[Rfam]
RNA sequence: AUUGCCCCUGCUGGCCGGGCUUAAAAUGCCAGAGCGGUACGGCGCGGAGUGGCCGCGCGUUUAGAAAUUAAAUCCAUACCGAGAAAGGAAA
Numbered sequence: 001a002u003u004g005c006c007c008c009u010g011c012u013g014g015c016c017g018g019g020c021u022u023a024a025a026a027u028g029c030c031a032g033a034g035c036g037g038u039a040c041g042g043c044g045c046g047g048a049g050u051g052g053c054c055g056c057g058c059g060u061u062u063a064g065a066a067a068u069u070a071a072a073u074c075c076a077u078a079c080c081g082a083g084a085a086a087g088g089a090a091a
Base pairs, nucleotide, nucleotide: 005019006018007017011032012031013030014029035081036080037079038078039077042058043057044056045055046054
The family of this 91-nucleotide RNA is "GP20-a RNA".
Rfam classes the family as a cis-regulatory element.
The sequence is in the family's curated seed alignment.